Shown here is a 37-nucleotide RNA sequence from Filimonas zeae, a member of the family "DUF805b RNA". The match comes from Rfam's covariance-model search (36 bits). Taxonomically the source falls in Filimonas (Bacteria, Pseudomonadati, Bacteroidota, Chitinophagia). The base pairs follow the family's consensus structure, which is taken from published work. Rfam classes the family as a cis-regulatory element.

RNA sequence: AAUGGGAAAUGCCGAAAACCAGUUAAAAGAGUAGGCU
Numbered sequence: 001a002a003u004g005g006g007a008a009a010u011g012c013c014g015a016a017a018a019c020c021a022g023u024u025a026a027a028a029g030a031g032u033a034g035g036c037u
Base pairs, nucleotide, nucleotide: 003021004020005019011036012035013034